[Rfam]
RNA sequence: UCCUCGCUCAAAGAAUCGCAUUCAAAGCUUACGCACAGAGGAAGUCUUCCUUCUUCAUACCAUUACUCCUAGCUUUGGGAGAAAGUCCCCGGACACCCUGCGCCCUCGUCUUAAAACCACGAGGGUUCCUCAUCCAACAAGCCAGGCACUGCGGAAACGCGCCGCCAUAGAAGCAUUUUUCAUAGCGGCUUACGCCUCUUUUUCCCUUCCCUUCCUCUUUUCUCUCGGGGAAAGAAGAAGGGCUCGUCUCCGUUCUAGCCCGACUCUUCAGAUGUUUUAUUCUGUGGAGGAAACAAUGGUGGUUUAGAUGGGGCGGGGUCUUUUUGACGAAGGGGGAGGUUGCUAUUCGUCGUGGUUCGAUAGUCAUGCGAUUGCUUGGCUUCCCGCGUGUAUUUUUUUUAUUAUAUAUGUGUGGAGCCGGGUAACUCGAUGGGGCUUAUUCUUGAGGCGAGG
Numbered sequence: 001u002c003c004u005c006g007c008u009c010a011a012a013g014a015a016u017c018g019c020a021u022u023c024a025a026a027g028c029u030u031a032c033g034c035a036c037a038g039a040g041g042a043a044g045u046c047u048u049c050c051u052u053c054u055u056c057a058u059a060c061c062a063u064u065a066c067u068c069c070u071a072g073c074u075u076u077g078g079g080a081g082a083a084a085g086u087c088c089c090c091g092g093a094c095a096c097c098c099u100g101c102g103c104c105c106u107c108g109u110c111u112u113a114a115a116a117c118c119a120c121g122a123g124g125g126u127u128c129c130u131c132a133u134c135c136a137a138c139a140a141g142c143c144a145g146g147c148a149c150u151g152c153g154g155a156a157a158c159g160c161g162c163c164g165c166c167a168u169a170g171a172a173g174c175a176u177u178u179u180u181c182a183u184a185g186c187g188g189c190u191u192a193c194g195c196c197u198c199u200u201u202u203u204c205c206c207u208u209c210c211c212u213u214c215c216u217c218u219u220u221u222c223u224c225u226c227g228g229g230g231a232a233a234g235a236a237g238a239a240g241g242g243c244u245c246g247u248c249u250c251c252g253u254u255c256u257a258g259c260c261c262g263a264c265u266c267u268u269c270a271g272a273u274g275u276u277u278u279a280u281u282c283u284g285u286g287g288a289g290g291a292a293a294c295a296a297u298g299g300u301g302g303u304u305u306a307g308a309u310g311g312g313g314c315g316g317g318g319u320c321u322u323u324u325u326g327a328c329g330a331a332g333g334g335g336g337a338g339g340u341u342g343c344u345a346u347u348c349g350u351c352g353u354g355g356u357u358c359g360a361u362a363g364u365c366a367u368g369c370g371a372u373u374g375c376u377u378g379g380c381u382u383c384c385c386g387c388g389u390g391u392a393u394u395u396u397u398u399u400u401a402u403u404a405u406a407u408a409u410g411u412g413u414g415g416a417g418c419c420g421g422g423u424a425a426c427u428c429g430a431u432g433g434g435g436c437u438u439a440u441u442c443u444u445g446a447g448g449c450g451a452g453g
Stems, first nucleotide, its partner, number of pairs: 002453006008446004014373006022079001023077006038052006083438003087435004104124006210339006219332004232325007375422009
RNase MRP: a 453-nucleotide RNA sequence from Blastomyces silverae. Clan: RNaseP clan.